Background: This 77-nucleotide sequence from Microtus ochrogaster belongs to the Rfam family "Small nucleolar RNA SNORD83". The base pairs follow the family's consensus structure, which was predicted with PFOLD. Lineage of the source: Eukaryota > Dipnotetrapodomorpha > Tetrapoda > Cricetidae > Microtus. For this family Rfam cites "Characterisation of the U83 and U84 small nucleolar RNAs: two novel 2'-O-ribose methylation guide RNAs that lack complementarities to ribosomal RNAs" (Jady and Kiss, Nucleic Acids Res, 2000). A search with the family's covariance model found it, with a score of 66 bits. The family's RNA type in Rfam is C/D-box small nucleolar RNA. Its family is annotated with nucleolus and RNA processing in the Gene Ontology.
RNA sequence: GCCAAAUGAUGUUUGCUUGACACGGGAGCAUGCGUGUGCAAGGACGACUCUGGAUCUAUCACCCAUGACUGAUGGCU
Numbered sequence: 001g002c003c004a005a006a007u008g009a010u011g012u013u014u015g016c017u018u019g020a021c022a023c024g025g026g027a028g029c030a031u032g033c034g035u036g037u038g039c040a041a042g043g044a045c046g047a048c049u050c051u052g053g054a055u056c057u058a059u060c061a062c063c064c065a066u067g068a069c070u071g072a073u074g075g076c077u
Stems, first nucleotide, its partner, number of pairs: 001076004028039004